Group II catalytic intron D1-D4-6: a 218-nucleotide RNA from Gracilinema caldarium. A search with the family's covariance model found it, with a score of 122 bits.
RNA sequence: AAAAUCCCAACCGGCCAAGCCUGGCAAGCAGCCGGAAGCGAGUCUUGCAUGCUCAAGGGCGACCUUAAGGGCGUGAAGCGUAGACAGCGAUCUCAAAUGCCGUGCUAUUGAGCCUCGAAAUGUGUAUAAUCGGGGAAAUUUCUGUAGUUGAACUAGGCGGGAACAACACCGAACCAUCGAAGUGCCUGAUGGCGAGGUUCCCCCGGGGUCUGAGAACA
Numbered sequence: 001a002a003a004a005u006c007c008c009a010a011c012c013g014g015c016c017a018a019g020c021c022u023g024g025c026a027a028g029c030a031g032c033c034g035g036a037a038g039c040g041a042g043u044c045u046u047g048c049a050u051g052c053u054c055a056a057g058g059g060c061g062a063c064c065u066u067a068a069g070g071g072c073g074u075g076a077a078g079c080g081u082a083g084a085c086a087g088c089g090a091u092c093u094c095a096a097a098u099g100c101c102g103u104g105c106u107a108u109u110g111a112g113c114c115u116c117g118a119a120a121u122g123u124g125u126a127u128a129a130u131c132g133g134g135g136a137a138a139u140u141u142c143u144g145u146a147g148u149u150g151a152a153c154u155a156g157g158c159g160g161g162a163a164c165a166a167c168a169c170c171g172a173a174c175c176a177u178c179g180a181a182g183u184g185c186c187u188g189a190u191g192g193c194g195a196g197g198u199u200c201c202c203c204c205g206g207g208g209u210c211u212g213a214g215a216a217c218a
Stems, first nucleotide, its partner, number of pairs: 011035005019029002023186003038088002042085004046080002048075005053068001055066004109212001110210001112209006132203006139163002143159003169197002174192005